[Rfam]
RNA sequence: UGUGCUGAUUUACCACAGUGACUUUUAAUUUUUAUUUAUUUAUUGUUAACUGCCAGAAAUCAGCUAAAAUAAGUUCAUAAUUUUAGGAACCACUUCUAAAUUGACAUUUUUUUUAGUGGGCCGCAUAUAUGAAUACAGCU
Numbered sequence: 001u002g003u004g005c006u007g008a009u010u011u012a013c014c015a016c017a018g019u020g021a022c023u024u025u026u027a028a029u030u031u032u033u034a035u036u037u038a039u040u041u042a043u044u045g046u047u048a049a050c051u052g053c054c055a056g057a058a059a060u061c062a063g064c065u066a067a068a069a070u071a072a073g074u075u076c077a078u079a080a081u082u083u084u085a086g087g088a089a090c091c092a093c094u095u096c097u098a099a100a101u102u103g104a105c106a107u108u109u110u111u112u113u114u115a116g117u118g119g120g121c122c123g124c125a126u127a128u129a130u131g132a133a134u135a136c137a138g139c140u
Stems, first nucleotide, its partner, number of pairs: 004064008016052004020047003074133005086122002090118001098110003102106001
The record is a 140-nucleotide sequence from Plasmodium relictum, which matches "small nucleolar RNA snoR27" in Rfam. Taxonomically the source falls in Haemamoeba (Eukaryota, Alveolata, Aconoidasida, Plasmodiidae). The family's consensus secondary structure was predicted with RNAalifold. Rfam classes the family as an H/ACA-box small nucleolar RNA. A search with the family's covariance model found it, with a score of 113 bits.